[Rfam]
RNA sequence: UGAUUGCUAUGACGAUUAUUCAAGGACGGUAUCUGAGCGAUGGAGACUCCUCGCGUGAUUAUACCCAAUCUGAGACUAAUAACUGAGCAAAUA
Numbered sequence: 001u002g003a004u005u006g007c008u009a010u011g012a013c014g015a016u017u018a019u020u021c022a023a024g025g026a027c028g029g030u031a032u033c034u035g036a037g038c039g040a041u042g043g044a045g046a047c048u049c050c051u052c053g054c055g056u057g058a059u060u061a062u063a064c065c066c067a068a069u070c071u072g073a074g075a076c077u078a079a080u081a082a083c084u085g086a087g088c089a090a091a092u093a
Stems, first nucleotide, its partner, number of pairs: 001093002004090004037054004042049001
RNA: Small nucleolar RNA Z118/Z121/Z120
Organism: Brachypodium distachyon